[Rfam]
RNA: Small nucleolar RNA U2-19
Organism: Sorex araneus
RNA sequence: GAUCAAUGAUGAAAAUAGCCAAGUCUAAGCAUCAGGAGGCCAUGCAGGCUGCCUGAUGCGUCAUCUAGUUCUUUUUUAUA
Dot-bracket structure: ............................(((((...((.(......).))....))))).....................
Numbered sequence: 001g002a003u004c005a006a007u008g009a010u011g012a013a014a015a016u017a018g019c020c021a022a023g024u025c026u027a028a029g030c031a032u033c034a035g036g037a038g039g040c041c042a043u044g045c046a047g048g049c050u051g052c053c054u055g056a057u058g059c060g061u062c063a064u065c066u067a068g069u070u071c072u073u074u075u076u077u078a079u080a
Stems, first nucleotide, its partner, number of pairs: 029059005037050002040047001